RNA sequence: UCUUCUCCUGGAAUGAAAGCCUCGCCAAUCUGUCAUUGUUACUAAGCUAGGUCGGUGGGACUUUCGUUCGAUUAGAAGA
Numbered sequence: 001u002c003u004u005c006u007c008c009u010g011g012a013a014u015g016a017a018a019g020c021c022u023c024g025c026c027a028a029u030c031u032g033u034c035a036u037u038g039u040u041a042c043u044a045a046g047c048u049a050g051g052u053c054g055g056u057g058g059g060a061c062u063u064u065c066g067u068u069c070g071a072u073u074a075g076a077a078g079a
Base pairs, nucleotide, nucleotide: 004076005075006074011069012068013067014066015065016064017063018062019061021059022058023057024056025055026054030051031050
Shown here is a 79-nucleotide sequence from Strongylocentrotus purpuratus, a member of the family "mir-278_2 microRNA precursor family".